[Rfam]
This 82-nucleotide RNA from Bordetella genomosp. 7 belongs to the Rfam family "SucA RNA motif". A search with the family's covariance model found it, with a score of 52 bits. Lineage of the source: Bacteria > Pseudomonadati > Pseudomonadota > Betaproteobacteria > Bordetella.
RNA sequence: CUGCUAUCCGCCUAACGGGAAGCCCGUGUCGCGGAAGGUUUUCCUGCAUCGCAUCGAGUGAAGCACUCGUCAAGGUGAAGCA
Numbered sequence: 001c002u003g004c005u006a007u008c009c010g011c012c013u014a015a016c017g018g019g020a021a022g023c024c025c026g027u028g029u030c031g032c033g034g035a036a037g038g039u040u041u042u043c044c045u046g047c048a049u050c051g052c053a054u055c056g057a058g059u060g061a062a063g064c065a066c067u068c069g070u071c072a073a074g075g076u077g078a079a080g081c082a
Stems, first nucleotide, its partner, number of pairs: 002082003007035005016026004037044002047077004055069006